[Rfam]
RNA sequence: UGGCGCCCAACAUGGGGCUCAAUUUAAGAGGGACACCGUGAGGAACGUCGUCCAAGCCGGCCGGAUUGAAGGUAGAAAUCCAGAGGAGAAGUCACCGCGGGAACCUGCCGCGGCCUUGCUCUCUGGUAAGUGAACGACGAUAUUAUGGGUCAGGAAAUUAGUCAGCAUGAAUUGUUCGUUGAAGGGCUCAGCAAAGCCUUAAAGGCGCGAGGAGUAAAGGUGAAAGUAAGCCGGUUAAUCAAGUAUUUUGAUUAUAUUAAGGAUGUUUGCCCCU
Numbered sequence: 001u002g003g004c005g006c007c008c009a010a011c012a013u014g015g016g017g018c019u020c021a022a023u024u025u026a027a028g029a030g031g032g033a034c035a036c037c038g039u040g041a042g043g044a045a046c047g048u049c050g051u052c053c054a055a056g057c058c059g060g061c062c063g064g065a066u067u068g069a070a071g072g073u074a075g076a077a078a079u080c081c082a083g084a085g086g087a088g089a090a091g092u093c094a095c096c097g098c099g100g101g102a103a104c105c106u107g108c109c110g111c112g113g114c115c116u117u118g119c120u121c122u123c124u125g126g127u128a129a130g131u132g133a134a135c136g137a138c139g140a141u142a143u144u145a146u147g148g149g150u151c152a153g154g155a156a157a158u159u160a161g162u163c164a165g166c167a168u169g170a171a172u173u174g175u176u177c178g179u180u181g182a183a184g185g186g187c188u189c190a191g192c193a194a195a196g197c198c199u200u201a202a203a204g205g206c207g208c209g210a211g212g213a214g215u216a217a218a219g220g221u222g223a224a225a226g227u228a229a230g231c232c233g234g235u236u237a238a239u240c241a242a243g244u245a246u247u248u249u250g251a252u253u254a255u256a257u258u259a260a261g262g263a264u265g266u267u268u269g270c271c272c273c274u
Base pairs, nucleotide, nucleotide: 006032007031008030013026014025037047038046039045082124083123084122085120086119091115096112097111098110099109100108131152132151133150135149158201160199161197162196208250209249210248211247212246214244215243218236219235221233222232259274261272262271264269

The family of this 274-nucleotide RNA from Saimiri boliviensis is "Mason-Pfizer monkey virus packaging signal". The base pairs follow the family's consensus structure, which was predicted with PFOLD. It scores 118 bits against the family's covariance model.